Rfam assigns this 105-nucleotide RNA sequence from Marinobacter gudaonensis to the family "t44 RNA". Rfam classes the family as a small RNA. The organism belongs to Marinobacter, within Bacteria. The family's consensus secondary structure was predicted with LocARNA. On this family, see Tjaden et al., Nucleic Acids Res 2002: "Transcriptome analysis of Escherichia coli using high-density oligonucleotide probe arrays". About the family: This family consists of a number of bacterial RNA genes of between 135 and 170 bases in length.

RNA sequence: AAACGAAUCCGGCAAAUUCACACACGUGUCGACACGUUAUCCCAGGGUGCCUGCUUCUGGUUUCAAGGAGUCAGGUUGGGAUGAUCGGACACGUGGAGGACUAAC
Numbered sequence: 001a002a003a004c005g006a007a008u009c010c011g012g013c014a015a016a017u018u019c020a021c022a023c024a025c026g027u028g029u030c031g032a033c034a035c036g037u038u039a040u041c042c043c044a045g046g047g048u049g050c051c052u053g054c055u056u057c058u059g060g061u062u063u064c065a066a067g068g069a070g071u072c073a074g075g076u077u078g079g080g081a082u083g084a085u086c087g088g089a090c091a092c093g094u095g096g097a098g099g100a101c102u103a104a105c
Stems, first nucleotide, its partner, number of pairs: 023095008036085009049076005